[Rfam]
RNA sequence: UGUGACCCCCAUAAAAGGAGUAGUUCCCCAAUCCGAGGUGACUUUCCCAUAUUCCGAAUUC
Numbered sequence: 001u002g003u004g005a006c007c008c009c010c011a012u013a014a015a016a017g018g019a020g021u022a023g024u025u026c027c028c029c030a031a032u033c034c035g036a037g038g039u040g041a042c043u044u045u046c047c048c049a050u051a052u053u054c055c056g057a058a059u060u061c
Base pairs, nucleotide, nucleotide: 017045018044019043020042021041023039024038025037027035
The record is a 61-nucleotide RNA from Hordeum vulgare, which matches "Plastid-psbN 5UTR RNA" in Rfam. The source organism's lineage runs through Eukaryota, Liliopsida, Petrosaviidae, Poaceae and Hordeum vulgare. A reference for the family is Richter et al. (2023), "Retrograde signaling in plants: A critical review focusing on the GUN pathway and beyond", Plant Commun. Plastid psbN is a non-coding RNA (ncRNA) recognised in plastids. It was reported as a conserved 11 stem-loop in the prime untranslated region (5UTR) of psbN genes. It has been reported that the motif is retained in a subset of mature transcripts in barley, which can suggests a possible role in transcript alternative 5 prime processing. It scores 59 bits against the family's covariance model. Rfam classes the family as a cis-regulatory element. The base pairs follow the family's consensus structure, which was predicted with LocARNA.